[Rfam]
RNA sequence: AUGUGGCCUGUGGACUUCCCUUUGUCAUCCUAUGCCUGGAGUCAUGUCAAUGGGGCUGGGAAGGCAAAGGGAUGCCCAGAUGUCAUGGAA
Numbered sequence: 001a002u003g004u005g006g007c008c009u010g011u012g013g014a015c016u017u018c019c020c021u022u023u024g025u026c027a028u029c030c031u032a033u034g035c036c037u038g039g040a041g042u043c044a045u046g047u048c049a050a051u052g053g054g055g056c057u058g059g060g061a062a063g064g065c066a067a068a069g070g071g072a073u074g075c076c077c078a079g080a081u082g083u084c085a086u087g088g089a090a
Stems, first nucleotide, its partner, number of pairs: 017072006024065002028061005034056004
mir-204 microRNA precursor family: a 90-nucleotide sequence from Poecilia reticulata. Taxonomically the source falls in Poecilia (Eukaryota, Vertebrata, Actinopterygii, Teleostei). It scores 89 bits against the family's covariance model.